This 90-nucleotide sequence from Neobacillus piezotolerans belongs to the Rfam family "c-di-GMP-I-GGC riboswitch aptamer". The match comes from Rfam's covariance-model search (66 bits). NCBI's taxonomy places the organism under Bacteria, Bacilli, Caryophanales, Bacillaceae, Neobacillus. The base pairs follow the family's consensus structure, which is taken from published work.
[Rfam]
RNA sequence: ACAGAAAAAGGCAAACCGCUUGAAAGGGCGGGACGCAAAGCUUCAGGUCUUCUGCAGUAACGUUGUGCAAUGACGGCUGGGCUGCCUGGA
Dot-bracket structure: ..((......((...((((((....))))))..[))..((((.((((((......................))).])))))))..))...